Annotation: Rfam assigns this 46-nucleotide RNA sequence from Lentisphaera araneosa to the family "Acido-Lenti-1 RNA". The family's consensus secondary structure is taken from published work. The family's RNA type in Rfam is small RNA. The source organism's lineage runs through Bacteria, Lentisphaerales, Lentisphaeraceae, Lentisphaera and Lentisphaera araneosa.
[Rfam]
RNA sequence: CCUAGCUCUGACGAGCUAGGCUAAGUUAAUACGUACUUACAGCACU
Numbered sequence: 001c002c003u004a005g006c007u008c009u010g011a012c013g014a015g016c017u018a019g020g021c022u023a024a025g026u027u028a029a030u031a032c033g034u035a036c037u038u039a040c041a042g043c044a045c046u
Stems, first nucleotide, its partner, number of pairs: 001020008033045002036042002